[Rfam]
RNA: Satellite tobacco necrosis virus cap-independent translation element
Organism: Virtovirus tabaci
RNA sequence: UGGGCGCUGAAAGAUGCGUAGCUACCCUUCUGGAGCCACUUCCUGGUGGUAAGCAGAAAUCCAAGGGUACGGUGGUACGGUGGAAAGCAGUCCC
Numbered sequence: 001u002g003g004g005c006g007c008u009g010a011a012a013g014a015u016g017c018g019u020a021g022c023u024a025c026c027c028u029u030c031u032g033g034a035g036c037c038a039c040u041u042c043c044u045g046g047u048g049g050u051a052a053g054c055a056g057a058a059a060u061c062c063a064a065g066g067g068u069a070c071g072g073u074g075g076u077a078c079g080g081u082g083g084a085a086a087g088c089a090g091u092c093c094c
Base pairs, nucleotide, nucleotide: 002093003092004091005090006088007087008086015082016081017079018078019077020076021073022072023069024068025067026066027065028064032062033061034060036049037048038047039046040045